[Rfam]
RNA sequence: ACGCGGAAAGGAGGUGGUCCAAACAAUGGUGAUUCAUAGUUGGGCUAGCGAGGUGGUUGUCCGCUGACGACGCGGACUCCAGUCUCGGCCGUUCGGCGAAUUCGAGGCAACCACCGGGGCCCCUGGCAGCCGGAGGGCGGGAACCCUUCCCGACCAUGGUCCAUCCGGCCCGUCUGCACGACAGACGGAAGCUCGCCCGGGGCCCUUCUCAC
Number, nucleotide and partner (000 for none) at each position: 001a000002c000003g000004c000005g000006g000007a000008a000009a000010g000011g000012a000013g061014g060015u059016g058017g057018u056019c000020c000021a000022a000023a000024c000025a000026a000027u000028g000029g000030u000031g000032a000033u000034u000035c000036a000037u000038a000039g000040u000041u000042g000043g000044g000045c000046u000047a000048g000049c000050g000051a000052g000053g000054u000055g000056g018057u017058u016059g015060u014061c013062c098063g097064c096065u095066g094067a093068c000069g000070a000071c091072g090073c000074g000075g000076a000077c000078u000079c000080c000081a000082g000083u000084c000085u000086c000087g000088g000089c000090c072091g071092u000093u067094c066095g065096g064097c063098g062099a000100a000101u000102u000103c000104g000105a000106g000107g000108c000109a000110a000111c000112c000113a000114c000115c000116g206117g205118g204119g203120c202121c201122c200123c199124u000125g197126g196127c195128a000129g000130c188131c187132g186133g000134a000135g000136g000137g000138c000139g000140g000141g000142a000143a000144c000145c000146c000147u000148u000149c000150c000151c000152g000153a000154c000155c000156a000157u000158g000159g000160u000161c000162c000163a000164u000165c000166c000167g000168g000169c000170c000171c000172g000173u000174c000175u000176g000177c000178a000179c000180g000181a000182c000183a000184g000185a000186c132187g131188g130189a000190a000191g000192c000193u000194c000195g127196c126197c125198c000199g123200g122201g121202g120203c119204c118205c117206u116207u000208c000209u000210c000211a000212c000
RNA: Actinobacteria sRNA Ms_IGR-5